[Rfam]
RNA sequence: AUGUUAACGUAUCAUACGUUAACAUCGGUUUUUUGAAAAAUUGAUGUUAACGUGUAUGCAUUAACAU
Number, nucleotide and partner (000 for none) at each position: 001a067002u066003g065004u064005u063006a062007a061008c000009g059010u058011a057012u000013c000014a055015u054016a053017c052018g051019u050020u049021a048022a047023c046024a045025u044026c043027g042028g041029u040030u039031u038032u037033u000034u000035g000036a000037a032038a031039a030040a029041u028042u027043g026044a025045u024046g023047u022048u021049a020050a019051c018052g017053u016054g015055u014056a000057u011058g010059c009060a000061u007062u006063a005064a004065c003066a002067u001
Record summary
The family of this 67-nucleotide RNA from Glycine max is "MIR4359 microRNA precursor family". Its family is annotated with miRNA-mediated post-transcriptional gene silencing and RISC complex in the Gene Ontology. The family's consensus secondary structure was predicted with RNAalifold.